[Rfam]
RNA sequence: UCUCCCGAGGAGCGCUGCAACGGUCGCCGGUUUCCCCCGCGCGCCGCCAGGCUCGGGACCGAUCCACCGAACGGCGCUCGUCUAAC
Numbered sequence: 001u002c003u004c005c006c007g008a009g010g011a012g013c014g015c016u017g018c019a020a021c022g023g024u025c026g027c028c029g030g031u032u033u034c035c036c037c038c039g040c041g042c043g044c045c046g047c048c049a050g051g052c053u054c055g056g057g058a059c060c061g062a063u064c065c066a067c068c069g070a071a072c073g074g075c076g077c078u079c080g081u082c083u084a085a086c
Stems, first nucleotide, its partner, number of pairs: 003058006021046004

This 86-nucleotide sequence from Zeimonas arvi belongs to the Rfam family "SAH (S-adenosyl-L-homocysteine) riboswitch aptamer".
Rfam 15.1 lists 1,354 matches to the family in 1,132 species.
Rfam links the family to the GO terms regulation of gene expression and S-adenosylhomocysteine metabolic process.